The family of this 88-nucleotide RNA from Equus caballus is "mir-9014 microRNA precursor family".
RNA sequence: GGAGCCAUAGGGAGGGAUACCAAUCCAGCUUUAGGAAAAGAAACCUUCCACAGGCGUCUUGGAGAUUGGCGACCACCCUCAUGACUUA
Numbered sequence: 001g002g003a004g005c006c007a008u009a010g011g012g013a014g015g016g017a018u019a020c021c022a023a024u025c026c027a028g029c030u031u032u033a034g035g036a037a038a039a040g041a042a043a044c045c046u047u048c049c050a051c052a053g054g055c056g057u058c059u060u061g062g063a064g065a066u067u068g069g070c071g072a073c074c075a076c077c078c079u080c081a082u083g084a085c086u087u088a
Stems, first nucleotide, its partner, number of pairs: 002087003006083003010079003015074002018071001020069006029062002038060004044054003
A search with the family's covariance model found it, with a score of 89 bits. The source organism's lineage runs through Eukaryota, Bilateria, Chordata, Laurasiatheria and Equus.